[Rfam]
A member of the RNA family "mir-31 microRNA precursor family" from Caenorhabditis auriculariae, 80 nucleotides long. The base pairs follow the family's consensus structure, which was predicted with RNAalifold. Rfam links the family to the GO terms gene silencing by miRNA and RISC complex.
RNA sequence: GUCCCGGGGCCAGGCAAGAUGUUGGCAUAGCUGAGUUUUUUGCACCUCAGCUCUGCCGCAUGUAGCCACGUCCCGUCCUG
Numbered sequence: 001g002u003c004c005c006g007g008g009g010c011c012a013g014g015c016a017a018g019a020u021g022u023u024g025g026c027a028u029a030g031c032u033g034a035g036u037u038u039u040u041u042g043c044a045c046c047u048c049a050g051c052u053c054u055g056c057c058g059c060a061u062g063u064a065g066c067c068a069c070g071u072c073c074c075g076u077c078c079u080g
Stems, first nucleotide, its partner, number of pairs: 005075006013067003017063001019061003023058005029052003